[Rfam]
This 53-nucleotide RNA sequence from Chimaeribacter arupi belongs to the Rfam family "L31-Gammaproteobacteria ribosomal protein leader".
NCBI's taxonomy places the organism under Bacteria, Pseudomonadota, Gammaproteobacteria, Yersiniaceae, Chimaeribacter.
The base pairs follow the family's consensus structure, which is taken from published work.
Its Rfam clan is "Ribosomal Protein L31 Leader clan".
RNA sequence: CGCGUGGUGUCUGGCAAAACAGGGCUGGAUAGCGACGCGGCCUUAACUGAGGU
Numbered sequence: 001c002g003c004g005u006g007g008u009g010u011c012u013g014g015c016a017a018a019a020c021a022g023g024g025c026u027g028g029a030u031a032g033c034g035a036c037g038c039g040g041c042c043u044u045a046a047c048u049g050a051g052g053u
Stems, first nucleotide, its partner, number of pairs: 001039005007033002011028004